About this RNA
Rfam assigns this 85-nucleotide RNA sequence from Celeribacter halophilus to the family "Glycine riboswitch aptamer".
RNA sequence: CAUCGUGCGUCGGGAGAAGGGGCCACCCCUACCGAAGGAGCAACCGCCCCGGGAAACUCUCAGGUAAACGGACCUUCGCACGGUC
Numbered sequence: 001c002a003u004c005g006u007g008c009g010u011c012g013g014g015a016g017a018a019g020g021g022g023c024c025a026c027c028c029c030u031a032c033c034g035a036a037g038g039a040g041c042a043a044c045c046g047c048c049c050c051g052g053g054a055a056a057c058u059c060u061c062a063g064g065u066a067a068a069c070g071g072a073c074c075u076u077c078g079c080a081c082g083g084u085c
Stems, first nucleotide, its partner, number of pairs: 006080004012074002019029004031065003034061002038059003044052002
Dot-bracket structure: .....((((..((.....((((...)))).(((((..(((...((.....))....))))).))).......))..)))).....
Notes
The base pairs follow the family's consensus structure.